[Rfam]
RNA sequence: UUGCACGAUGCAAACCCCGGGCUUCUCCUAAAUUCUUUCUUGAAGAUGAAGGCCCCAAUGCCCGUGCAAUAAGAUUCAGCUGUUUAGUGUUGCAGGUUGGCUAAUCUAUUGGUCUGUGCCUGUGUCAAAGCAACAGCAACAUGU
Numbered sequence: 001u002u003g004c005a006c007g008a009u010g011c012a013a014a015c016c017c018c019g020g021g022c023u024u025c026u027c028c029u030a031a032a033u034u035c036u037u038u039c040u041u042g043a044a045g046a047u048g049a050a051g052g053c054c055c056c057a058a059u060g061c062c063c064g065u066g067c068a069a070u071a072a073g074a075u076u077c078a079g080c081u082g083u084u085u086a087g088u089g090u091u092g093c094a095g096g097u098u099g100g101c102u103a104a105u106c107u108a109u110u111g112g113u114c115u116g117u118g119c120c121u122g123u124g125u126c127a128a129a130g131c132a133a134c135a136g137c138a139a140c141a142u143g144u
Base pairs, nucleotide, nucleotide: 003067004066005065006064007063010061011060019055020054021053022052023051024049025048026046027045079137080136081135082134083133084132088127089126091124092123093122094121095120096119099114100113101112
This 144-nucleotide sequence from Amborella trichopoda belongs to the Rfam family "small nucleolar RNA snoR134". The source organism's lineage runs through Eukaryota, Viridiplantae, Euphyllophyta, Magnoliopsida and Amborella. On this family, see Chen and Wu, Nucleic Acids Res 2009: "Mining small RNA sequencing data: a new approach to identify small nucleolar RNAs in Arabidopsis". The family's RNA type in Rfam is H/ACA-box small nucleolar RNA.